[Rfam]
RNA sequence: UUCGGCGGCGGGUCCCUGAGUCCCUGUCGGAGGGUAGGACCUGCCGCCAAAUUGCUGCCACCGUUUCAUUAAUUCUUUGGCGGCACUUCGGCGGCAGGUCCUUGCCUCCGACAGGGACUCGGGGACCCUCCACCAAAUUAC
Numbered sequence: 001u002u003c004g005g006c007g008g009c010g011g012g013u014c015c016c017u018g019a020g021u022c023c024c025u026g027u028c029g030g031a032g033g034g035u036a037g038g039a040c041c042u043g044c045c046g047c048c049a050a051a052u053u054g055c056u057g058c059c060a061c062c063g064u065u066u067c068a069u070u071a072a073u074u075c076u077u078u079g080g081c082g083g084c085a086c087u088u089c090g091g092c093g094g095c096a097g098g099u100c101c102u103u104g105c106c107u108c109c110g111a112c113a114g115g116g117a118c119u120c121g122g123g124g125a126c127c128c129u130c131c132a133c134c135a136a137a138u139u140a141c
Base pairs, nucleotide, nucleotide: 010128011127012126013125014124015123016122018120019119021117022116023115024114025113026112027111028110029109030108031107032106033105036102037101038100039099040098041097042096043095044094045093046092047091

Overview: The record is a 141-nucleotide RNA sequence from Gopherus agassizii, which matches "mraW RNA" in Rfam. The match comes from Rfam's covariance-model search (52 bits). By type it is a cis-regulatory element. The base pairs follow the family's consensus structure, which is taken from published work.